This 103-nucleotide sequence from Megasphaera geminata belongs to the Rfam family "SAM riboswitch aptamer (S box leader)". The match comes from Rfam's covariance-model search (81 bits). Pairs were carried over by alignment from the consensus structure, which is taken from published work.
Nucleotides: 103
Stems, first nucleotide, its partner, number of pairs: 001103001003101006013043001015042004022032003026078004044070004049066002051062004074095001079092001081090003
Number, partner (000 for none) and nucleotide at each position: 001103g002000u003101u004100c005099c006098a007097u008096c009000a010000a011000g012000a013043g014000u015042c016041g017040g018039c019000g020000g021000a022032g023031g024030g025000a026078u027077u028076g029075g030024c031023c032022c033000c034000a035000u036000g037000a038000u039018g040017c041016c042015g043013c044070a045069g046068c047067a048000a049066c050065c051062u052061u053060c054059u055000a056000a057000a058000a059054g060053g061052a062051a063000a064000a065050g066049g067047u068046g069045c070044u071000a072000a073000g074095u075029c076028c077027a078026a079092c080000a081090g082089c083088c084000g085000u086000c087000a088083g089082g090081c091000g092079g093000g094000a095074a096008g097007a098006u099005g100004g101003g102000u103001c